[Rfam]
RNA: Bacterial large subunit ribosomal RNA, nucleotides 2543 to 2788
Organism: Mariniphaga anaerophila
RNA sequence: UGAGAUUUGAGAGGACCUGAUACUAGUACGAGAGGACCGUGUUGGACAUGCCUCUAGUGUACCUGUUGUGGCGCCAGCUGCAUUGCAGGGUAGCUAUGCAUGGAUGAGAUAAGCGCUGAAAGCAUCUAAGCGCGAAGCUCACCUCAAGAUGAGAUCUCAUUUAAGGGCCGUAGGAGACUACUACGUUGAUAGGCUGCAGGUGUAAAGGCAGUAAUGUCAAAGCCGAGCAGUACUAAUUGCCCGAAU
Number, nucleotide and partner (000 for none) at each position: 001u159002g158003a157004g156005a155006u154007u153008u152009g000010a000011g145012a144013g143014g142015a000016c000017c045018u044019g043020a042021u041022a040023c039024u000025a000026g000027u000028a000029c000030g000031a000032g000033a000034g000035g000036a000037c000038c000039g023040u022041g021042u020043u019044g018045g017046a000047c102048a101049u100050g099051c098052c000053u000054c000055u096056a095057g094058u000059g000060u000061a000062c089063c088064u087065g086066u085067u082068g081069u080070g079071g078072c077073g000074c000075c000076a000077g072078c071079u070080g069081c068082a067083u000084u000085g066086c065087a064088g063089g062090g000091u000092a000093g000094c057095u056096a055097u000098g051099c050100a049101u048102g047103g000104a000105u000106g140107a139108g138109a000110u000111a000112a000113g133114c132115g131116c130117u129118g000119a000120a000121a000122g000123c000124a000125u000126c000127u000128a000129a117130g116131c115132g114133c113134g000135a000136a000137g000138c108139u107140c106141a000142c014143c013144u012145c011146a000147a000148g000149a000150u000151g000152a008153g007154a006155u005156c004157u003158c002159a001160u000161u000162u244163a000164a000165g242166g241167g240168c239169c185170g184171u183172a182173g181174g000175a000176g000177a000178c000179u000180a000181c173182u172183a171184c170185g169186u000187u000188g000189a000190u235191a234192g233193g231194c230195u229196g228197c227198a000199g224200g223201u000202g000203u219204a000205a000206a000207g218208g217209c216210a215211g000212u000213a000214a000215u210216g209217u208218c207219a203220a000221a000222g000223c200224c199225g000226a000227g197228c196229a195230g194231u193232a000233c192234u191235a190236a000237u000238u000239g168240c167241c166242c165243g000244a162245a000246u000